[Rfam]
A member of the RNA family "RNase MRP" from Agrilus planipennis, 249 nucleotides long. A search with the family's covariance model found it, with a score of 68 bits. Lineage of the source: Eukaryota > Mandibulata > Altocrustacea > Insecta > Agrilus. The family's RNA type in Rfam is ribozyme.

RNA sequence: AGGUUCUUCGGAGCUAGCCUUACGGGGUUAUUUCAGAGUUCUAAUGACUCAGCAUACGCCCUGAGAAAGGUCCCCGGACACGUGGUAGAAAGUACCGCCGAACAAAAUUCGGUAGCCUCGAAUCCGAGCCGAUGCAGGUCGGGAGUUUGUAAACUGGGCGCGGUGUUUAAAUUCGAGGAAUUGUCAGAGAGCUAGACAUGACUAGAUUCUUUCAAUGGAUAACAAAACGGGGCCCACUCUUGGAGAACC
Numbered sequence: 001a002g003g004u005u006c007u008u009c010g011g012a013g014c015u016a017g018c019c020u021u022a023c024g025g026g027g028u029u030a031u032u033u034c035a036g037a038g039u040u041c042u043a044a045u046g047a048c049u050c051a052g053c054a055u056a057c058g059c060c061c062u063g064a065g066a067a068a069g070g071u072c073c074c075c076g077g078a079c080a081c082g083u084g085g086u087a088g089a090a091a092g093u094a095c096c097g098c099c100g101a102a103c104a105a106a107a108u109u110c111g112g113u114a115g116c117c118u119c120g121a122a123u124c125c126g127a128g129c130c131g132a133u134g135c136a137g138g139u140c141g142g143g144a145g146u147u148u149g150u151a152a153a154c155u156g157g158g159c160g161c162g163g164u165g166u167u168u169a170a171a172u173u174c175g176a177g178g179a180a181u182u183g184u185c186a187g188a189g190a191g192c193u194a195g196a197c198a199u200g201a202c203u204a205g206a207u208u209c210u211u212u213c214a215a216u217g218g219a220u221a222a223c224a225a226a227a228c229g230g231g232g233c234c235c236a237c238u239c240u241u242g243g244a245g246a247a248c249c
Stems, first nucleotide, its partner, number of pairs: 002249010014205004019200001023063006036050005069234002072232004084096004097113006116177001118176006127168001207219003211215001
Dot-bracket structure: .((((((((((..((((.(...((((((.......(((((.....))))).......)))))).....[[.[[[[........((((.....))))((((((.....))))))..(.((((((...(........................................)..)))))))......................).)))).(((.(...).))).........]]]]]].....))))))))))